RNA sequence: AUCGCCAUGGAUGGCGGUUGUUCCACGCAGCAGCGAUGUUUCGGCUCCGCCGAAACUCGUAGUCAAAACUAUACACGGACGUAUAGUUUUGACGAUU
Number, nucleotide and partner (000 for none) at each position: 001a018002u017003c016004g015005c014006c013007a000008u000009g000010g000011a000012u000013g006014g005015c004016g003017g002018u001019u000020g000021u000022u000023c000024c000025a000026c000027g000028c000029a000030g000031c000032a000033g000034c059035g058036a057037u000038g056039u055040u054041u053042c052043g051044g050045c049046u000047c000048c000049g045050c044051c043052g042053a041054a040055a039056c038057u036058c035059g034060u000061a000062g093063u092064c091065a090066a089067a088068a087069c086070u085071a084072u083073a082074c081075a000076c000077g000078g000079a000080c000081g074082u073083a072084u071085a070086g069087u068088u067089u066090u065091g064092a063093c062094g000095a000096u000097u000
Shown here is a 97-nucleotide sequence from Treponema vincentii, a member of the family "TD-2 RNA". A reference for the family is Weinberg et al. (2007), "Identification of 22 candidate structured RNAs in bacteria using the CMfinder comparative genomics pipeline", Nucleic Acids Res. The family's RNA type in Rfam is small RNA. The match comes from Rfam's covariance-model search (67 bits). Rfam 15.1 lists 310 matches to the family in 11 species.